Rfam assigns this 523-nucleotide part of an RNA from Candidatus Altarchaeales archaeon WOR_SM1_SCG to the family "Archaeal small subunit ribosomal RNA".
A reference for the family is Yusupov et al. (2001), "Crystal structure of the ribosome at 5.5 A resolution", Science.
[Rfam]
RNA sequence: AUUCCAGUUGAUCCUGCUGGAGGCUACUGCUAUUGGGGUUCGACUAAGCCAUGCGAGUCAAAGGGUUAUGACAAUAACACUGGCGAAAGGCUCAGUAACACGUGGAUAACUUGCCCUCGGAAGGAGUAUAACCUCGGGAAACUGAGGCUAAUACACCAUAGGUGACAAGUACUGGAAUGUCUGUCACUUAAAAGGGGCCGUUGUUAUGUCCGACGGUCACCGUCUGAGGAUAGGUCUGCGGCGGAUUAGGUUGAUGGCGAGGUAAUGGCUCACCAUGCCUGCGAUCCGUACCGGCUAUGAGAGUAGGAGCCGGGAGAUGGGUACUGAGACACGGAUCCGGGCCUUACGGGGUGCAGCAGGCGCGAAACCUCUACAAUGCACGAAAGUGUGAUAGGGGAACCCCAAGUGCUUCUGUAAAACAGGAGCUUUUGUAGUGUGUAAAAAGCAUUACGAAUAAAGGCUGGGUAAGACCGGUGCCAGCCUCCGCGGUAAUACCGGCAGCUUAAGUGGUAGUCGUUUAUUG
Numbered sequence: 001a002u003u004c005c006a007g008u009u010g011a012u013c014c015u016g017c018u019g020g021a022g023g024c025u026a027c028u029g030c031u032a033u034u035g036g037g038g039u040u041c042g043a044c045u046a047a048g049c050c051a052u053g054c055g056a057g058u059c060a061a062a063g064g065g066u067u068a069u070g071a072c073a074a075u076a077a078c079a080c081u082g083g084c085g086a087a088a089g090g091c092u093c094a095g096u097a098a099c100a101c102g103u104g105g106a107u108a109a110c111u112u113g114c115c116c117u118c119g120g121a122a123g124g125a126g127u128a129u130a131a132c133c134u135c136g137g138g139a140a141a142c143u144g145a146g147g148c149u150a151a152u153a154c155a156c157c158a159u160a161g162g163u164g165a166c167a168a169g170u171a172c173u174g175g176a177a178u179g180u181c182u183g184u185c186a187c188u189u190a191a192a193a194g195g196g197g198c199c200g201u202u203g204u205u206a207u208g209u210c211c212g213a214c215g216g217u218c219a220c221c222g223u224c225u226g227a228g229g230a231u232a233g234g235u236c237u238g239c240g241g242c243g244g245a246u247u248a249g250g251u252u253g254a255u256g257g258c259g260a261g262g263u264a265a266u267g268g269c270u271c272a273c274c275a276u277g278c279c280u281g282c283g284a285u286c287c288g289u290a291c292c293g294g295c296u297a298u299g300a301g302a303g304u305a306g307g308a309g310c311c312g313g314g315a316g317a318u319g320g321g322u323a324c325u326g327a328g329a330c331a332c333g334g335a336u337c338c339g340g341g342c343c344u345u346a347c348g349g350g351g352u353g354c355a356g357c358a359g360g361c362g363c364g365a366a367a368c369c370u371c372u373a374c375a376a377u378g379c380a381c382g383a384a385a386g387u388g389u390g391a392u393a394g395g396g397g398a399a400c401c402c403c404a405a406g407u408g409c410u411u412c413u414g415u416a417a418a419a420c421a422g423g424a425g426c427u428u429u430u431g432u433a434g435u436g437u438g439u440a441a442a443a444a445g446c447a448u449u450a451c452g453a454a455u456a457a458a459g460g461c462u463g464g465g466u467a468a469g470a471c472c473g474g475u476g477c478c479a480g481c482c483u484c485c486g487c488g489g490u491a492a493u494a495c496c497g498g499c500a501g502c503u504u505a506a507g508u509g510g511u512a513g514u515c516g517u518u519u520a521u522u523g
Stems, first nucleotide, its partner, number of pairs: 004020005022515010033405009042363001048361003052358003057084003062081002065078004091316003101240007110233002115229007123157002126154001132147006162187006169181001171180002194221002242288003249279003254276004259271003291313004295306004318339005341352004369395001371394003377390005408426008431451007458504006471498004480487002
Overview:
The family's consensus secondary structure is taken from published work. Its family is annotated with structural constituent of ribosome and ribosome in the Gene Ontology. Taxonomically the source falls in Candidatus Altarchaeales (Archaea, Nanobdellati, Candidatus Altarchaeota, Candidatus Altarchaeia). The family is grouped with related families in Rfam's "SSU clan".